RNA sequence: UCGUGUAAGAAGAGGCGCCCGCUUCUCACCUGAUUGAUUUUGUUCAGAUUAGGUUGACAUUCGCUGAUGGAUUGUAUAAAACUUCAGGAAUCAGAAGUGUGGGCGCAUCAUACGUCCACACUUUUUUAUUUUU
Numbered sequence: 001u002c003g004u005g006u007a008a009g010a011a012g013a014g015g016c017g018c019c020c021g022c023u024u025c026u027c028a029c030c031u032g033a034u035u036g037a038u039u040u041u042g043u044u045c046a047g048a049u050u051a052g053g054u055u056g057a058c059a060u061u062c063g064c065u066g067a068u069g070g071a072u073u074g075u076a077u078a079a080a081a082c083u084u085c086a087g088g089a090a091u092c093a094g095a096a097g098u099g100u101g102g103g104c105g106c107a108u109c110a111u112a113c114g115u116c117c118a119c120a121c122u123u124u125u126u127u128a129u130u131u132u133u
Base pairs, nucleotide, nucleotide: 011026012025013024014023015022016021028054029053030052033049034048035047036045037044098120099119100118101117102116103115104114105113107111